Rfam assigns this 76-nucleotide sequence from Myotis davidii to the family "mir-9229 microRNA precursor family". Gene Ontology terms of the family: miRNA-mediated post-transcriptional gene silencing and RISC complex. The match comes from Rfam's covariance-model search (81 bits).

[Rfam]
RNA sequence: GAGACACCCUUCUGGGGCAGGACUUGUUUCAGUGGGGCUUCAGUGCUCAGUGAGUCUGCCCCUUGAGUGUGUCGCU
Numbered sequence: 001g002a003g004a005c006a007c008c009c010u011u012c013u014g015g016g017g018c019a020g021g022a023c024u025u026g027u028u029u030c031a032g033u034g035g036g037g038c039u040u041c042a043g044u045g046c047u048c049a050g051u052g053a054g055u056c057u058g059c060c061c062c063u064u065g066a067g068u069g070u071g072u073c074g075c076u
Stems, first nucleotide, its partner, number of pairs: 001075001003073005009067003014062006021056003029053003033049004037044002